RNA sequence: CUGCGAAUAUUCUCGCUGUCCUUAUGUUUCAAUCAUCAGGGCAGGCUAGACAUUCGCUAUAUUACUACUAUGCAGUGUGUCCCCAGGACUGGUGUUUUCUCCCUAGUUCUGGUUUUAAACUGCAAGUAACAUCU
Numbered sequence: 001c002u003g004c005g006a007a008u009a010u011u012c013u014c015g016c017u018g019u020c021c022u023u024a025u026g027u028u029u030c031a032a033u034c035a036u037c038a039g040g041g042c043a044g045g046c047u048a049g050a051c052a053u054u055c056g057c058u059a060u061a062u063u064a065c066u067a068c069u070a071u072g073c074a075g076u077g078u079g080u081c082c083c084c085a086g087g088a089c090u091g092g093u094g095u096u097u098u099c100u101c102c103c104u105a106g107u108u109c110u111g112g113u114u115u116u117a118a119a120c121u122g123c124a125a126g127u128a129a130c131a132u133c134u
Base pairs, nucleotide, nucleotide: 003057004056005055016044017043018042019041020040021039022038024036025035026034067127068126069125072123073122083112084111085110086109087108088107089106090105091104092103
This 134-nucleotide RNA from Phrynocephalus forsythii belongs to the Rfam family "Small nucleolar RNA SNORA72". Rfam describes the family as follows. U72 is a member of the H/ACA class of snoRNAs. The snoRNA gene is located in intron 4 of the ribosomal L30 protein gene in human, mouse and chicken. Rfam 15.1 lists 1,541 matches to the family in 547 species. The family's consensus secondary structure was predicted with PFOLD. The literature on the family includes a 1997 paper in Genes Dev by Ganot et al., "The family of box ACA small nucleolar RNAs is defined by an evolutionarily conserved secondary structure and ubiquitous sequence elements essential for RNA accumulation". A search with the family's covariance model found it, with a score of 110 bits.